[Rfam]
RNA sequence: UAAAAAAUAAAAAAUAUACCCCAUAUAUUCCCAAUAAUAUGGAUUGGGAGUCUCUACGAAGUAACCGUAAAUUACUUCACUAUGGACGGUGCUUUUACUCUA
Numbered sequence: 001u002a003a004a005a006a007a008u009a010a011a012a013a014a015u016a017u018a019c020c021c022c023a024u025a026u027a028u029u030c031c032c033a034a035u036a037a038u039a040u041g042g043a044u045u046g047g048g049a050g051u052c053u054c055u056a057c058g059a060a061g062u063a064a065c066c067g068u069a070a071a072u073u074a075c076u077u078c079a080c081u082a083u084g085g086a087c088g089g090u091g092c093u094u095u096u097a098c099u100c101u102a
Stems, first nucleotide, its partner, number of pairs: 021085005029049007058078007
RNA: Purine riboswitch aptamer